A member of the RNA family "Alphaproteobacterial ar14" from Marivivens sp. JLT3646, 129 nucleotides long. Lineage of the source: Bacteria > Pseudomonadota > Rhodobacterales > Paracoccaceae > Marivivens. The family has 118 seed sequences and 784 matches in Rfam 15.1.
RNA sequence: CAUAGAAGCAGAUGGUCUCUCCUCCUCCCUGACCGGACGCUUCGCCAAGCGAAUGCUCUCUCCUCCUCCCUGAGCGUUCGCCGAAUAGCACGGCGGCACCCCUCCUCCUCCCGGGUGCCGCCGUUCGCU
Numbered sequence: 001c002a003u004a005g006a007a008g009c010a011g012a013u014g015g016u017c018u019c020u021c022c023u024c025c026u027c028c029c030u031g032a033c034c035g036g037a038c039g040c041u042u043c044g045c046c047a048a049g050c051g052a053a054u055g056c057u058c059u060c061u062c063c064u065c066c067u068c069c070c071u072g073a074g075c076g077u078u079c080g081c082c083g084a085a086u087a088g089c090a091c092g093g094c095g096g097c098a099c100c101c102c103u104c105c106u107c108c109u110c111c112c113g114g115g116u117g118c119c120g121c122c123g124u125u126c127g128c129u
Stems, first nucleotide, its partner, number of pairs: 007041003013035005049081010090124011